[Rfam]
RNA sequence: UUUAGCGUAUUAUCGACACCGGCCCUUUCCGCCGUGUUCGGUAAUAAAAUAACCUGGCUUAUUAGUCCGAAUUCAGACAAAUAUAAACAAAUCCUGCUCAAAAUUAAAAAUUCUAACCGGUAAAAGAUAUUACUUAAACAUGUAAAUUUACUUUCCUUUAAAAAACAAAAAACCGCCAAAAUCAGGCGGUUAUUUGUUGCUGGUCCGGU
Numbered sequence: 001u002u003u004a005g006c007g008u009a010u011u012a013u014c015g016a017c018a019c020c021g022g023c024c025c026u027u028u029c030c031g032c033c034g035u036g037u038u039c040g041g042u043a044a045u046a047a048a049a050u051a052a053c054c055u056g057g058c059u060u061a062u063u064a065g066u067c068c069g070a071a072u073u074c075a076g077a078c079a080a081a082u083a084u085a086a087a088c089a090a091a092u093c094c095u096g097c098u099c100a101a102a103a104u105u106a107a108a109a110a111u112u113c114u115a116a117c118c119g120g121u122a123a124a125a126g127a128u129a130u131u132a133c134u135u136a137a138a139c140a141u142g143u144a145a146a147u148u149u150a151c152u153u154u155c156c157u158u159u160a161a162a163a164a165a166c167a168a169a170a171a172a173c174c175g176c177c178a179a180a181a182u183c184a185g186g187c188g189g190u191u192a193u194u195u196g197u198u199g200c201u202g203g204u205c206c207g208g209u
Stems, first nucleotide, its partner, number of pairs: 008046009017036002020034004054208004060083004065078003069074001116204006126149002130145004164198006171191007
The record is a 209-nucleotide sequence from Shigella flexneri, which matches "IS128 RNA" in Rfam.
Rfam classes the family as a small RNA.
Lineage of the source: Bacteria > Pseudomonadota > Gammaproteobacteria > Shigella flexneri > Shigella flexneri 2a.
For this family Rfam cites "Transcriptome analysis of Escherichia coli using high-density oligonucleotide probe arrays" (Tjaden et al., Nucleic Acids Res, 2002).
Rfam's curators put it in the seed alignment.
About the family: This family consists of a number of bacterial RNA genes of 209 bases in length. The IS128 RNA gene is present in Escherichia coli and Shigella flexneri and where it is found between the sseA and sseB genes. The function of this RNA is unknown.